[Rfam]
RNA sequence: GGUCUGUGAUGAAUAGUAAAAGGUCUGAUUAUCCUAAGAUUUGCACUUCCAUGACGUUUUCUCCCAGCGGUUUCUCACCAGUCACAGCACAGUAAUGGUGUGGCUGGCAGAGUGUUUGCUGACAGUCUGCGAUGUGGUCAGUUCAUGUUAACCUGAAGUACCAGAGACAUGACUGGGAUCAGCAUCCAACAGUCUUACUUGAAGGAGUUUGGGGUCUUGGAUUGUUAUAAAUGGACAUGUGAUCUGACUUUUCUGCUGAGACC
Numbered sequence: 001g002g003u004c005u006g007u008g009a010u011g012a013a014u015a016g017u018a019a020a021a022g023g024u025c026u027g028a029u030u031a032u033c034c035u036a037a038g039a040u041u042u043g044c045a046c047u048u049c050c051a052u053g054a055c056g057u058u059u060u061c062u063c064c065c066a067g068c069g070g071u072u073u074c075u076c077a078c079c080a081g082u083c084a085c086a087g088c089a090c091a092g093u094a095a096u097g098g099u100g101u102g103g104c105u106g107g108c109a110g111a112g113u114g115u116u117u118g119c120u121g122a123c124a125g126u127c128u129g130c131g132a133u134g135u136g137g138u139c140a141g142u143u144c145a146u147g148u149u150a151a152c153c154u155g156a157a158g159u160a161c162c163a164g165a166g167a168c169a170u171g172a173c174u175g176g177g178a179u180c181a182g183c184a185u186c187c188a189a190c191a192g193u194c195u196u197a198c199u200u201g202a203a204g205g206a207g208u209u210u211g212g213g214g215u216c217u218u219g220g221a222u223u224g225u226u227a228u229a230a231a232u233g234g235a236c237a238u239g240u241g242a243u244c245u246g247a248c249u250u251u252u253c254u255g256c257u258g259a260g261a262c263c
Stems, first nucleotide, its partner, number of pairs: 001263004037245005048221004053216002061207004065121006078107009129187001131186005144171006153164003
This 263-nucleotide RNA sequence from Nyctiprogne leucopyga belongs to the Rfam family "Small Cajal body specific RNA 6". Rfam classes the family as a small Cajal body RNA. The match comes from Rfam's covariance-model search (121 bits). On this family, see Darzacq et al., EMBO J 2002: "Cajal body-specific small nuclear RNAs: a novel class of 2'-O-methylation and pseudouridylation guide RNAs". Taxonomically the source falls in Nyctiprogne (Eukaryota, Tetrapoda, Coelurosauria, Chordeilinae). U88 is small Cajal body specific RNA (scaRNA). scaRNAs are a novel class of small nuclear RNAs which localise to the Cajal bodies. The family has 17 seed sequences and 1,309 matches in Rfam 15.1.